Xanthine riboswitch aptamer (NMT1 RNA): a 55-nucleotide RNA from Comamonas sp. BIGb0124. Pairs were carried over by alignment from the consensus structure, which is taken from published work. For this family Rfam cites "A bacterial riboswitch class senses xanthine and uric acid to regulate genes associated with purine oxidation" (Yu and Breaker, RNA, 2020). Its family is annotated with purine nucleobase binding in the Gene Ontology. Taxonomically the source falls in Comamonas (Bacteria, Pseudomonadati, Betaproteobacteria, Comamonadaceae). A search with the family's covariance model found it, with a score of 49 bits.
RNA sequence: GAUCAGAGUAGAAGCGUUCAGCGGCCCGCCCGGCCGCCCGGAAAUUGCUCGAGUC
Numbered sequence: 001g002a003u004c005a006g007a008g009u010a011g012a013a014g015c016g017u018u019c020a021g022c023g024g025c026c027c028g029c030c031c032g033g034c035c036g037c038c039c040g041g042a043a044a045u046u047g048c049u050c051g052a053g054u055c
Stems, first nucleotide, its partner, number of pairs: 006050005015040001018042002021037006